[Rfam]
RNA sequence: AUUCCUUUUUUCGUGUUUCCCCGAUUAAUGCAACCUUGGAUGCUUCA
Numbered sequence: 001a002u003u004c005c006u007u008u009u010u011u012c013g014u015g016u017u018u019c020c021c022c023g024a025u026u027a028a029u030g031c032a033a034c035c036u037u038g039g040a041u042g043c044u045u046c047a
Stems, first nucleotide, its partner, number of pairs: 011024003032044001034042001
Shown here is a 47-nucleotide RNA sequence from Gossypium australe, a member of the family "Plastid-ycf3 group II-D1 intron". Rfam's curators write: Plastid rpl16 is a non-coding RNA (ncRNA) recognised in plastids. It was recognised in and intronic region of a ribosome rpl16 gene. The family's consensus secondary structure was predicted with LocARNA. A search with the family's covariance model found it, with a score of 57 bits. Its family is annotated with Group II intron splicing in the Gene Ontology.